Shown here is a 134-nucleotide sequence from Pseudomonas kuykendallii, a member of the family "Manganese Mn2+ riboswitch aptamer (yybP-ykoY)". Lineage of the source: Bacteria > Pseudomonadati > Pseudomonadota > Gammaproteobacteria > Pseudomonas. It scores 50 bits against the family's covariance model. Pairs were carried over by alignment from the consensus structure.

RNA sequence: CGCCCCGUCCUAGGGGAGUAGUCUCCCGCGAGCUUCCGCUCGCCCGGCACGCAUCAACAUGCUUGGUCCACAGACCAUGGUGCGUGCGACCCGGAAUCCAGCCGCCCGGCUGCGUUUCCAGGUUCGACAAGACC
Numbered sequence: 001c002g003c004c005c006c007g008u009c010c011u012a013g014g015g016g017a018g019u020a021g022u023c024u025c026c027c028g029c030g031a032g033c034u035u036c037c038g039c040u041c042g043c044c045c046g047g048c049a050c051g052c053a054u055c056a057a058c059a060u061g062c063u064u065g066g067u068c069c070a071c072a073g074a075c076c077a078u079g080g081u082g083c084g085u086g087c088g089a090c091c092c093g094g095a096a097u098c099c100a101g102c103c104g105c106c107c108g109g110c111u112g113c114g115u116u117u118c119c120a121g122g123u124u125c126g127a128c129a130a131g132a133c134c
Stems, first nucleotide, its partner, number of pairs: 026046001028044001047087010064077005093134002